Background
Shown here is an 83-nucleotide RNA from Aliivibrio fischeri, a member of the family "RpsF leader". The literature on the family includes a 2014 paper in RNA by Fu et al., "Bacterial RNA motif in the 5' UTR of rpsF interacts with an S6:S18 complex". The family's RNA type in Rfam is cis-regulatory leader.

[Rfam]
RNA sequence: UCGGUCUUUUUUUUAGUUCCUUGCUUCCCUUGGAUGACCGAGCCGUUCGUGGAAGCUGAAUAAUCCGUAAGGAGCAACCAAUG
Numbered sequence: 001u002c003g004g005u006c007u008u009u010u011u012u013u014u015a016g017u018u019c020c021u022u023g024c025u026u027c028c029c030u031u032g033g034a035u036g037a038c039c040g041a042g043c044c045g046u047u048c049g050u051g052g053a054a055g056c057u058g059a060a061u062a063a064u065c066c067g068u069a070a071g072g073a074g075c076a077a078c079c080a081a082u083g
Base pairs, nucleotide, nucleotide: 016075017074018073019072020071021070022069023056024055025054026053027052028051031045032044033043
From the family's description: Conserved and widely distributed to many bacterial species RNA structure. It precedes operon containing rpsF, which encodes ribosomal protein S6. The motif also precedes operon containing rpsR, which encodes ribosomal protein S18. NCBI's taxonomy places the organism under Bacteria, Pseudomonadota, Gammaproteobacteria, Vibrionales, Aliivibrio fischeri.